[Rfam]
RNA sequence: UGCAGGCAAGCGCGGAGCUUGUAGAGGUCGUCGCAAGACGGCAGCCCAGAUGGGUGGAAUCCUCGAAUCCGGGGUCUGCAACCCC
Numbered sequence: 001u002g003c004a005g006g007c008a009a010g011c012g013c014g015g016a017g018c019u020u021g022u023a024g025a026g027g028u029c030g031u032c033g034c035a036a037g038a039c040g041g042c043a044g045c046c047c048a049g050a051u052g053g054g055u056g057g058a059a060u061c062c063u064c065g066a067a068u069c070c071g072g073g074g075u076c077u078g079c080a081a082c083c084c085c
Stems, first nucleotide, its partner, number of pairs: 001080007011072001013071004022066001024064003027042006045054003
The record is an 85-nucleotide RNA sequence from Burkholderia sp. Ch1-1, which matches "DUF3800-VII RNA" in Rfam. By type it is a small RNA.